[Rfam]
RNA sequence: UCUUGUUCCUAAGUACUAGUGCCGCAGGAGUGCUUUGUAUUAUAUCUCCUGCUGCUUAAGUGCUUAUCAAUGAGU
Numbered sequence: 001u002c003u004u005g006u007u008c009c010u011a012a013g014u015a016c017u018a019g020u021g022c023c024g025c026a027g028g029a030g031u032g033c034u035u036u037g038u039a040u041u042a043u044a045u046c047u048c049c050u051g052c053u054g055c056u057u058a059a060g061u062g063c064u065u066a067u068c069a070a071u072g073a074g075u
Stems, first nucleotide, its partner, number of pairs: 002074006010066008019057001024052007
The family of this 75-nucleotide RNA from Parnassius apollo is "mir-252 microRNA precursor family". On this family, see Ruby et al., Cell 2006: "Large-scale sequencing reveals 21U-RNAs and additional microRNAs and endogenous siRNAs in C. elegans". It scores 75 bits against the family's covariance model.